[Rfam]
mir-586 microRNA precursor family: an 89-nucleotide RNA sequence from Macaca mulatta.
RNA sequence: AUGGGGUAAAACCAUUAUGCAUAUUGUAUUUUUAGGUCCCAAUACGUGUGGACCCUAAAAAUGCAAUGCAUAAUGGUUUUAUACUCUUU
Numbered sequence: 001a002u003g004g005g006g007u008a009a010a011a012c013c014a015u016u017a018u019g020c021a022u023a024u025u026g027u028a029u030u031u032u033u034a035g036g037u038c039c040c041a042a043u044a045c046g047u048g049u050g051g052a053c054c055c056u057a058a059a060a061a062u063g064c065a066a067u068g069c070a071u072a073a074u075g076g077u078u079u080u081a082u083a084c085u086c087u088u089u
Base pairs, nucleotide, nucleotide: 003087004086005085006084007083008080009079010078011077012076013075014074015073016072017071018070019069020068021067022066025065026064027063028062029061030060031059032058033057034056035055036054039051040050041049
The sequence is in the family's curated seed alignment.
Its family is annotated with RISC complex and miRNA-mediated post-transcriptional gene silencing in the Gene Ontology.